This 437-nucleotide sequence from Sporosarcina limicola belongs to the Rfam family "T-box leader". Rfam describes the family as follows. Uncharged tRNA acts as the effector for transcription antitermination of genes in the T-box leader family.
[Rfam]
RNA sequence: GCUUUGGCAUUGAAGAGGAUUAGUAAUCUGUACGUUCGUUUAUAGAGAGCAGGUGGUUGGUGCAAACCUGUACGACGAUGAUGAACUCGCCUCCGAGCCUGCAUGGGUGAAUUCAACUUGAUUCAGCAAGGAAUUCAAACUCCUUGCUGAAUCAAGUUGGCCUCCGGCGGAUGUCACAGAUUUUGAAGGGAGUCAAGAGGGCAGUCUAAUCUCGCGACGUCCUGUCGCAACAAAGAGGGAUGUAGCUCAAUCCCUCUCCACUGCAUGACCUACAUCCUGUAGGCCUCAAGCUCGAUUCAAAAUCUAGACGCAAUUACGCCGAGACGCAAUUGAUUUAGUAACCCGUGCCGUUUUCCGCGUUAAGGAAUCAAGUUGGGCGGCUUAGCCGUCAAUUUGGGUGGCACCGCGGGAGCAUGUAUAUAACUCUCGUCCCUUAG
Numbered sequence: 001g002c003u004u005u006g007g008c009a010u011u012g013a014a015g016a017g018g019a020u021u022a023g024u025a026a027u028c029u030g031u032a033c034g035u036u037c038g039u040u041u042a043u044a045g046a047g048a049g050c051a052g053g054u055g056g057u058u059g060g061u062g063c064a065a066a067c068c069u070g071u072a073c074g075a076c077g078a079u080g081a082u083g084a085a086c087u088c089g090c091c092u093c094c095g096a097g098c099c100u101g102c103a104u105g106g107g108u109g110a111a112u113u114c115a116a117c118u119u120g121a122u123u124c125a126g127c128a129a130g131g132a133a134u135u136c137a138a139a140c141u142c143c144u145u146g147c148u149g150a151a152u153c154a155a156g157u158u159g160g161c162c163u164c165c166g167g168c169g170g171a172u173g174u175c176a177c178a179g180a181u182u183u184u185g186a187a188g189g190g191a192g193u194c195a196a197g198a199g200g201g202c203a204g205u206c207u208a209a210u211c212u213c214g215c216g217a218c219g220u221c222c223u224g225u226c227g228c229a230a231c232a233a234a235g236a237g238g239g240a241u242g243u244a245g246c247u248c249a250a251u252c253c254c255u256c257u258c259c260a261c262u263g264c265a266u267g268a269c270c271u272a273c274a275u276c277c278u279g280u281a282g283g284c285c286u287c288a289a290g291c292u293c294g295a296u297u298c299a300a301a302a303u304c305u306a307g308a309c310g311c312a313a314u315u316a317c318g319c320c321g322a323g324a325c326g327c328a329a330u331u332g333a334u335u336u337a338g339u340a341a342c343c344c345g346u347g348c349c350g351u352u353u354u355c356c357g358c359g360u361u362a363a364g365g366a367a368u369c370a371a372g373u374u375g376g377g378c379g380g381c382u383u384a385g386c387c388g389u390c391a392a393u394u395u396g397g398g399u400g401g402c403a404c405c406g407c408g409g410g411a412g413c414a415u416g417u418a419u420a421u422a423a424c425u426c427u428c429g430u431c432c433c434u435u436a437g
Stems, first nucleotide, its partner, number of pairs: 007098002015093004026082003037074002040072001049071006102347007349359003376390006396433003406430007